[Rfam]
RNA sequence: UCAAGAGGACGACCUCUUCCAGUUUGGUUUGUGUACCGGGACGGCCCGG
Numbered sequence: 001u002c003a004a005g006a007g008g009a010c011g012a013c014c015u016c017u018u019c020c021a022g023u024u025u026g027g028u029u030u031g032u033g034u035a036c037c038g039g040g041a042c043g044g045c046c047c048g049g
Stems, first nucleotide, its partner, number of pairs: 003018006036049005
A member of the RNA family "Guanidine-II riboswitch aptamer (mini-ykkC)" from Devosia sp. MC521, 49 nucleotides long. Rfam's curators write: Simpler in structure and has fewer highly conserved nucleotide positions than the ykkC-yxkD leader. Taxonomically the source falls in Devosia (Bacteria, Pseudomonadota, Alphaproteobacteria, Devosiaceae). A search with the family's covariance model found it, with a score of 38 bits.